[Rfam]
RNA: Selenocysteine transfer RNA
Organism: Pseudideonella sakaiensis
RNA sequence: GGAAGGAAAACGACCCCGGUGGGUCGGCCGGGCUUCAAACCCGGUGGGUGGCGCCAUGCGUCGCCGGGUGGGUUCGACUCCCAUUUCCUUCC
Number, nucleotide and partner (000 for none) at each position: 001g092002g091003a090004a089005g088006g087007a086008a085009a084010a000011c026012g025013a024014c023015c022016c021017c000018g000019g000020u000021g016022g015023g014024u013025c012026g011027g045028c044029c043030g042031g041032g040033c000034u000035u000036c000037a000038a000039a000040c032041c031042c030043g029044g028045u027046g000047g065048g064049u063050g062051g061052c000053g000054c000055c000056a000057u000058g000059c000060g000061u051062c050063g049064c048065c047066g000067g000068g000069u083070g082071g081072g080073u000074u000075c000076g000077a000078c000079u000080c072081c071082c070083a069084u009085u008086u007087c006088c005089u004090u003091c002092c001